[Rfam]
RNA sequence: AAGCGAAGGGCCCAGCGGGGAGGUGAUAACUCUGAAAAUGAGAUCUCUCUAACAAUGCAGACAAACCCUUCGCAGAUUGAUUCGCCGAACAGUAGGAUGCCCUCAACUUCUCAAUUUUUGGAGCAUCCGGAACCCUCGGCUACAUGUUU
Numbered sequence: 001a002a003g004c005g006a007a008g009g010g011c012c013c014a015g016c017g018g019g020g021a022g023g024u025g026a027u028a029a030c031u032c033u034g035a036a037a038a039u040g041a042g043a044u045c046u047c048u049c050u051a052a053c054a055a056u057g058c059a060g061a062c063a064a065a066c067c068c069u070u071c072g073c074a075g076a077u078u079g080a081u082u083c084g085c086c087g088a089a090c091a092g093u094a095g096g097a098u099g100c101c102c103u104c105a106a107c108u109u110c111u112c113a114a115u116u117u118u119u120g121g122a123g124c125a126u127c128c129g130g131a132a133c134c135c136u137c138g139g140c141u142a143c144a145u146g147u148u149u
Stems, first nucleotide, its partner, number of pairs: 003073007011020003025049002030042003084140005096127002099124002102121002105118002
The family of this 149-nucleotide RNA from Citrus unshiu is "Small nucleolar RNA snoR145". Pairs were carried over by alignment from the consensus structure, which was predicted with mfold. It is annotated as an H/ACA-box small nucleolar RNA.